A member of the RNA family "Small nucleolar RNA U2-19" from Myotis lucifugus, 80 nucleotides long. The match comes from Rfam's covariance-model search (79 bits). Its family is annotated with nucleolus and RNA processing in the Gene Ontology. Pairs were carried over by alignment from the consensus structure, which is taken from published work.

[Rfam]
RNA sequence: GGUCAGUGAUGGAAAUAGCCAAGACUGAGCAUCAGGAGACCUUCCAGUCCACCUGACGCAUGAUCUCUCUAGUUCGGAGA
Numbered sequence: 001g002g003u004c005a006g007u008g009a010u011g012g013a014a015a016u017a018g019c020c021a022a023g024a025c026u027g028a029g030c031a032u033c034a035g036g037a038g039a040c041c042u043u044c045c046a047g048u049c050c051a052c053c054u055g056a057c058g059c060a061u062g063a064u065c066u067c068u069c070u071a072g073u074u075c076g077g078a079g080a
Stems, first nucleotide, its partner, number of pairs: 029059002032056002038049003